Rfam assigns this 322-nucleotide sequence from Clupea harengus to the family "7SK RNA". Its Rfam clan is "7SK clan". It scores 315 bits against the family's covariance model. By type it is a non-coding RNA gene. The base pairs follow the family's consensus structure, which is taken from published work.
RNA sequence: GGAUGUGAGGGCGAUCUGGCUGCGACAUCUGUCACCCCAUUGAUCGCUAGGGUUGAUUCGGCUGAUCUGGCUGGCUAGGCGGGUGUCCCCUUCCUCCCUCACCGCUCCAUGUGUGUCCCUCCCGAAGCCCCGCGCUCGGUGGAAGAGGACGUGUUCCCCGGCGGACGAGCAUCGCUGGUAUAGAAGUAGCUGCACUCCCCUGCUAGAACCUCCAAACAAGCUCAAGGCCCAAGCCCAUUGUAGGAGAAACGUAGGGAAGUCAAGCUCCAAGACUUCGUACACAUCCAAAUGAGGCACUGCACGUGGCAGCCUGCCUUUCUUU
Numbered sequence: 001g002g003a004u005g006u007g008a009g010g011g012c013g014a015u016c017u018g019g020c021u022g023c024g025a026c027a028u029c030u031g032u033c034a035c036c037c038c039a040u041u042g043a044u045c046g047c048u049a050g051g052g053u054u055g056a057u058u059c060g061g062c063u064g065a066u067c068u069g070g071c072u073g074g075c076u077a078g079g080c081g082g083g084u085g086u087c088c089c090c091u092u093c094c095u096c097c098c099u100c101a102c103c104g105c106u107c108c109a110u111g112u113g114u115g116u117c118c119c120u121c122c123c124g125a126a127g128c129c130c131c132g133c134g135c136u137c138g139g140u141g142g143a144a145g146a147g148g149a150c151g152u153g154u155u156c157c158c159c160g161g162c163g164g165a166c167g168a169g170c171a172u173c174g175c176u177g178g179u180a181u182a183g184a185a186g187u188a189g190c191u192g193c194a195c196u197c198c199c200c201u202g203c204u205a206g207a208a209c210c211u212c213c214a215a216a217c218a219a220g221c222u223c224a225a226g227g228c229c230c231a232a233g234c235c236c237a238u239u240g241u242a243g244g245a246g247a248a249a250c251g252u253a254g255g256g257a258a259g260u261c262a263a264g265c266u267c268c269a270a271g272a273c274u275u276c277g278u279a280c281a282c283a284u285c286c287a288a289a290u291g292a293g294g295c296a297c298u299g300c301a302c303g304u305g306g307c308a309g310c311c312u313g314c315c316u317u318u319c320u321u322u
Stems, first nucleotide, its partner, number of pairs: 001108003005102007013093002018090002024087010035074002037070003042067004046062003117169001118167001120165002122139004127135002140161001142159001147157003189265003195259002198256006210246004216241004287322003291317005297309004